[Rfam]
RNA sequence: GAGAUGGGACAAGGCUGACGGAGUAAAGUGGAAAUGACCACGGGUACUGUACUAUCUGAAACGCCGACCGUCUGGGCAGAACUU
Numbered sequence: 001g002a003g004a005u006g007g008g009a010c011a012a013g014g015c016u017g018a019c020g021g022a023g024u025a026a027a028g029u030g031g032a033a034a035u036g037a038c039c040a041c042g043g044g045u046a047c048u049g050u051a052c053u054a055u056c057u058g059a060a061a062c063g064c065c066g067a068c069c070g071u072c073u074g075g076g077c078a079g080a081a082c083u084u
Base pairs, nucleotide, nucleotide: 003056004055005054006053007052009050010049011048015044016043017072018071019070020069021068028041029040030039031038063077064076065075